Rfam assigns this 119-nucleotide RNA sequence from Ricinus communis to the family "Small nucleolar RNA snoR100". The source organism's lineage runs through Eukaryota, Magnoliopsida, Malpighiales, Euphorbiaceae and Ricinus. Rfam 15.1 lists 1,851 matches to the family in 220 species. Gene Ontology terms of the family: RNA processing and nucleolus.
[Rfam]
RNA sequence: CAAUGAAGGUAGCAUGGUAAUGUGCACAGAGAUUGAAUUCUCUUUGGGUCUACAUGUCUGCUCCCUCUGAUGCCUCUCUUGGUGGCUUUGAUUUGGGGGCCUGGUUCUGACCCACAUUU
Numbered sequence: 001c002a003a004u005g006a007a008g009g010u011a012g013c014a015u016g017g018u019a020a021u022g023u024g025c026a027c028a029g030a031g032a033u034u035g036a037a038u039u040c041u042c043u044u045u046g047g048g049u050c051u052a053c054a055u056g057u058c059u060g061c062u063c064c065c066u067c068u069g070a071u072g073c074c075u076c077u078c079u080u081g082g083u084g085g086c087u088u089u090g091a092u093u094u095g096g097g098g099g100c101c102u103g104g105u106u107c108u109g110a111c112c113c114a115c116a117u118u119u
Stems, first nucleotide, its partner, number of pairs: 012025004046102005056092003060086003